[Rfam]
RNA sequence: GAUACUGAAUUUGCGAAAAGACAGAGAUAAAUACUGACUUUCAUUCGAAGGCAGUAUUACUCCUAUGGAGGUAGGCGUUAUUGUCCGACGUCAAACGGGCAUAAAAAAAGCGCCCUGAGGCGCUUUUUUAGCAAAG
Numbered sequence: 001g002a003u004a005c006u007g008a009a010u011u012u013g014c015g016a017a018a019a020g021a022c023a024g025a026g027a028u029a030a031a032u033a034c035u036g037a038c039u040u041u042c043a044u045u046c047g048a049a050g051g052c053a054g055u056a057u058u059a060c061u062c063c064u065a066u067g068g069a070g071g072u073a074g075g076c077g078u079u080a081u082u083g084u085c086c087g088a089c090g091u092c093a094a095a096c097g098g099g100c101a102u103a104a105a106a107a108a109a110g111c112g113c114c115c116u117g118a119g120g121c122g123c124u125u126u127u128u129u130a131g132c133a134a135a136g
Stems, first nucleotide, its partner, number of pairs: 061070001107126008
This 136-nucleotide sequence from Citrobacter portucalensis belongs to the Rfam family "Enterobacteria sRNA STnc130". Lineage of the source: Bacteria > Pseudomonadota > Gammaproteobacteria > Citrobacter > Citrobacter freundii complex.